A member of the RNA family "Ciliate telomerase RNA" from Tetrahymena borealis, 160 nucleotides long.
It is annotated as a non-coding RNA gene.
The family's consensus secondary structure is taken from published work.
Telomerase is a ribonucleoprotein reverse transcriptase that synthesises telomeric DNA. Telomerase RNAs differ greatly in sequence and structure between vertebrates, ciliates and yeasts, but they share a 5' pseudoknot structure close to the template sequence.
It is one of the family's seed sequences.
The family is grouped with related families in Rfam's "Telomerase clan".
Gene Ontology terms of the family: telomere maintenance via telomerase, telomerase catalytic core complex and telomerase activity.
RNA sequence: UUAUACCCGCAAAUUCAUUCAGGUCUGUAAUAGAUCUGUCAUUCAACCCCAAAAAUCUAGUGCAAAUAUUACCUUCACCAAUUAGGUAUAAUCAAUGGUAUCGCGGGACAAAAGACUAUCGACAUUUGGUACACUAUUUAUCAAUGGAUGUCUUAUUUUU
Numbered sequence: 001u002u003a004u005a006c007c008c009g010c011a012a013a014u015u016c017a018u019u020c021a022g023g024u025c026u027g028u029a030a031u032a033g034a035u036c037u038g039u040c041a042u043u044c045a046a047c048c049c050c051a052a053a054a055a056u057c058u059a060g061u062g063c064a065a066a067u068a069u070u071a072c073c074u075u076c077a078c079c080a081a082u083u084a085g086g087u088a089u090a091a092u093c094a095a096u097g098g099u100a101u102c103g104c105g106g107g108a109c110a111a112a113a114g115a116c117u118a119u120c121g122a123c124a125u126u127u128g129g130u131a132c133a134c135u136a137u138u139u140a141u142c143a144a145u146g147g148a149u150g151u152c153u154u155a156u157u158u159u160u
Stems, first nucleotide, its partner, number of pairs: 006107005011101001020038007070088001072086003078098003082094001112154005118149003123146002126144006
Dot-bracket structure: .....((((((........(((((((.....)))))))...............................(.(((...[[[.[.))).).....].]]]..).)))))....(((((.(((..((.((((((.......))))))))))))))))......